[Rfam]
RNA: Nitrogen stress-induced RNA 1
Organism: Alkalinema sp. CACIAM 70d
Nucleotides: 051
Stems, first nucleotide, its partner, number of pairs: 002013003024043008
Number, partner (000 for none) and nucleotide at each position: 001000u002013g003012g004011u005000a006000g007000a008000u009000g010000c011004a012003c013002c014000c015000u016000g017000a018000u019000g020000a021000u022000g023000a024043a025042c026041c027040c028039u029038g030037a031036c032000u033000c034000c035000g036031g037030u038029c039028g040027g041026g042025g043024u044000u045000u046000u047000u048000a049000u050000u051000u